Shown here is a 383-nucleotide part of an RNA from Brachyspira murdochii, a member of the family "Bacterial large subunit ribosomal RNA". The source organism's lineage runs through Bacteria, Spirochaetota, Spirochaetia, Brachyspirales and Brachyspira murdochii.
RNA sequence: GAGAAAACGGGUGAGAAACCCGUUCGCCGCAAACCCAAGGUUUCCUAGGUAAAGCUAAUCUGCCUAGGGUUAGUCGACCCCUAAGAUGAGGCUGAAAAGCGUAGUCGAUGGGAAACAGGUAAAUAUUCCUGUACUAUGAUAUGUUUCGAUGGAAUGACACAGAUUGUUUACGUACGCGUUAGAUUGGUAGAUAACGUCAAACAGUUUAGACUUGUGAUGAGUAAAAUGCUUGUUGCUUUAAGGUUGAGGCUGGAUAGUGACUGGGCUUUCGGGUUCAGGAAGUUGCGUGAGCUAGGCUGUCGAGAAAUAAUUUCUAAGGUUAGGCAUGUCAUAAUCGUACCGCAAACCGACACAGGUGGGUGAGAUGAGUAUUCUAAGGCGCU
Numbered sequence: 001g002a003g004a005a006a007a008c009g010g011g012u013g014a015g016a017a018a019c020c021c022g023u024u025c026g027c028c029g030c031a032a033a034c035c036c037a038a039g040g041u042u043u044c045c046u047a048g049g050u051a052a053a054g055c056u057a058a059u060c061u062g063c064c065u066a067g068g069g070u071u072a073g074u075c076g077a078c079c080c081c082u083a084a085g086a087u088g089a090g091g092c093u094g095a096a097a098a099g100c101g102u103a104g105u106c107g108a109u110g111g112g113a114a115a116c117a118g119g120u121a122a123a124u125a126u127u128c129c130u131g132u133a134c135u136a137u138g139a140u141a142u143g144u145u146u147c148g149a150u151g152g153a154a155u156g157a158c159a160c161a162g163a164u165u166g167u168u169u170a171c172g173u174a175c176g177c178g179u180u181a182g183a184u185u186g187g188u189a190g191a192u193a194a195c196g197u198c199a200a201a202c203a204g205u206u207u208a209g210a211c212u213u214g215u216g217a218u219g220a221g222u223a224a225a226a227u228g229c230u231u232g233u234u235g236c237u238u239u240a241a242g243g244u245u246g247a248g249g250c251u252g253g254a255u256a257g258u259g260a261c262u263g264g265g266c267u268u269u270c271g272g273g274u275u276c277a278g279g280a281a282g283u284u285g286c287g288u289g290a291g292c293u294a295g296g297c298u299g300u301c302g303a304g305a306a307a308u309a310a311u312u313u314c315u316a317a318g319g320u321u322a323g324g325c326a327u328g329u330c331a332u333a334a335u336c337g338u339a340c341c342g343c344a345a346a347c348c349g350a351c352a353c354a355g356g357u358g359g360g361u362g363a364g365a366u367g368a369g370u371a372u373u374c375u376a377a378g379g380c381g382c383u
Stems, first nucleotide, its partner, number of pairs: 006024006025381004033361004039341002044068006053061002075337003080111002085106003089102001091100003115132005135333011146319002151314005159300004166292002171287004176197006198257001202252004209245003214236009261278007347356002363375003